Manganese Mn2+ riboswitch aptamer (yybP-ykoY): a 190-nucleotide RNA from Marinomonas pollencensis. About the family: This RNA was originally discovered in E. coli during a large scale screen and was named SraF. The family was later found to exist upstream of related families of protein genes in many bacteria, including the the yybP and ykoK genes in B. subtilis. For this family Rfam cites "Novel small RNA-encoding genes in the intergenic regions of Escherichia coli" (Argaman et al., Curr Biol, 2001). Rfam links the family to the GO term manganese ion binding. The match comes from Rfam's covariance-model search (48 bits).
RNA sequence: CGCGUCCUCUUAGGGGAGUAAUCUUCUUUGCGUUUUGCAAAGAUUCUUUGUCAACAUAAUUGAGCCCCAUGCUCGUGGCAAAGAAGUCCUAGUUCGAACUAGAGUCGAAUAGGAUUGAUGAGACUUAAGACAAUAACUUGGCUCAGGUGGGCACAGGUUCGUUGUCUUUUGUUUAUUUGCCCACCUAGGA
Numbered sequence: 001c002g003c004g005u006c007c008u009c010u011u012a013g014g015g016g017a018g019u020a021a022u023c024u025u026c027u028u029u030g031c032g033u034u035u036u037g038c039a040a041a042g043a044u045u046c047u048u049u050g051u052c053a054a055c056a057u058a059a060u061u062g063a064g065c066c067c068c069a070u071g072c073u074c075g076u077g078g079c080a081a082a083g084a085a086g087u088c089c090u091a092g093u094u095c096g097a098a099c100u101a102g103a104g105u106c107g108a109a110u111a112g113g114a115u116u117g118a119u120g121a122g123a124c125u126u127a128a129g130a131c132a133a134u135a136a137c138u139u140g141g142c143u144c145a146g147g148u149g150g151g152c153a154c155a156g157g158u159u160c161g162u163u164g165u166c167u168u169u170u171g172u173u174u175a176u177u178u179g180c181c182c183a184c185c186u187a188g189g190a
Stems, first nucleotide, its partner, number of pairs: 026042003044085010061075005087190006